[Rfam]
RNA: mir-10 microRNA precursor family
Organism: Poecilia reticulata
RNA sequence: CUAUAUGUACCCUGUAGAACCAAAUUUGCGUGCUGCACAAACAUUCGCAAAUACGUCUCUACAGGAAUACAUGGG
Dot-bracket structure: .(((.((..((....(((..(..(((((((...............)))))))..)..)))...))..)).)))..
Numbered sequence: 001c002u003a004u005a006u007g008u009a010c011c012c013u014g015u016a017g018a019a020c021c022a023a024a025u026u027u028g029c030g031u032g033c034u035g036c037a038c039a040a041a042c043a044u045u046c047g048c049a050a051a052u053a054c055g056u057c058u059c060u061a062c063a064g065g066a067a068u069a070c071a072u073g074g075g
Stems, first nucleotide, its partner, number of pairs: 002073003006069002010065002016060003021055001024052007